[Rfam]
RNA sequence: AAGUAAGGAACUUCUGCUAAAGUCGGCCACGUCCUGUGGCCAACGCAGAAGUCAGCACAUCGUGUGCA
Number, nucleotide and partner (000 for none) at each position: 001a000002a000003g000004u000005a000006a000007g000008g000009a000010a000011c051012u050013u049014c048015u047016g046017c045018u000019a000020a000021a000022g000023u000024c000025g000026g040027c039028c038029a037030c036031g000032u000033c000034c000035u000036g030037u029038g028039g027040c026041c000042a000043a000044c000045g017046c016047a015048g014049a013050a012051g011052u000053c000054a000055g067056c066057a065058c064059a000060u000061c000062g000063u000064g058065u057066g056067c055068a000
Notes:
Rfam assigns this 68-nucleotide RNA from Peribacillus saganii to the family "Bacillaceae-1 RNA". Pairs were carried over by alignment from the consensus structure, which is taken from published work. Lineage of the source: Bacteria > Bacillota > Bacilli > Caryophanales > Peribacillus. The match comes from Rfam's covariance-model search (70 bits). It is annotated as a small RNA.